[Rfam]
RNA sequence: AAAAAGUGGAGACCAGAACCCACUUAAAUAAACGGGGCGGAAACCGAAAAGCCUAAUGAGUAAGUAAGGAA
Numbered sequence: 001a002a003a004a005a006g007u008g009g010a011g012a013c014c015a016g017a018a019c020c021c022a023c024u025u026a027a028a029u030a031a032a033c034g035g036g037g038c039g040g041a042a043a044c045c046g047a048a049a050a051g052c053c054u055a056a057u058g059a060g061u062a063a064g065u066a067a068g069g070a071a
Stems, first nucleotide, its partner, number of pairs: 006023004036053003043065002